Shown here is a 131-nucleotide RNA sequence from Eubucco bourcierii, a member of the family "U11 spliceosomal RNA".
It scores 54 bits against the family's covariance model.
Taxonomically the source falls in Eubucco (Eukaryota, Chordata, Tetrapoda, Sauria).
By type it is a spliceosomal small nuclear RNA.

RNA sequence: AAAAAAGGUUUGUGCCGUGCGUGGCACGGGGAUGGUCACGCAGCCGCCUCUGCGGAAUCGACGUCAAGAGAUUUCGGAAGCACAGUUUUGGAGGGCCACAAAGAUGCUCAGAGGGCUGCAGCAGCUCUCCU
Numbered sequence: 001a002a003a004a005a006a007g008g009u010u011u012g013u014g015c016c017g018u019g020c021g022u023g024g025c026a027c028g029g030g031g032a033u034g035g036u037c038a039c040g041c042a043g044c045c046g047c048c049u050c051u052g053c054g055g056a057a058u059c060g061a062c063g064u065c066a067a068g069a070g071a072u073u074u075c076g077g078a079a080g081c082a083c084a085g086u087u088u089u090g091g092a093g094g095g096c097c098a099c100a101a102a103g104a105u106g107c108u109c110a111g112a113g114g115g116c117u118g119c120a121g122c123a124g125c126u127c128u129c130c131u
Stems, first nucleotide, its partner, number of pairs: 008081004013026005027052005033046004053076007102128003106125003